[Rfam]
The family of this 114-nucleotide RNA from Anaerococcus lactolyticus is "SAM riboswitch aptamer (S box leader)". Rfam links the family to the GO term regulation of gene expression. The source organism's lineage runs through Bacteria, Tissierellales, Peptoniphilaceae, Anaerococcus and Anaerococcus lactolyticus. It scores 62 bits against the family's covariance model.
RNA sequence: CUACCAUAAAGAGAAGGGGAGAGACAAGCUCUGUGAUCCUUCAGCAACCUACUUUUUGUAAGGUGCUAAAGCUUGGCUGAUGGAGUUUUUUCACAUCCAUCAGGGCGAUGGGUG
Numbered sequence: 001c002u003a004c005c006a007u008a009a010a011g012a013g014a015a016g017g018g019g020a021g022a023g024a025c026a027a028g029c030u031c032u033g034u035g036a037u038c039c040u041u042c043a044g045c046a047a048c049c050u051a052c053u054u055u056u057u058g059u060a061a062g063g064u065g066c067u068a069a070a071g072c073u074u075g076g077c078u079g080a081u082g083g084a085g086u087u088u089u090u091u092c093a094c095a096u097c098c099a100u101c102a103g104g105g106c107g108a109u110g111g112g113u114g
Base pairs, nucleotide, nucleotide: 001114004111005110006109007108013042014041015040016039017038021031022030023029025076027074028072043067044066045065046064048063049062050060051059052058071106077103078102079101080100081099082098083097084096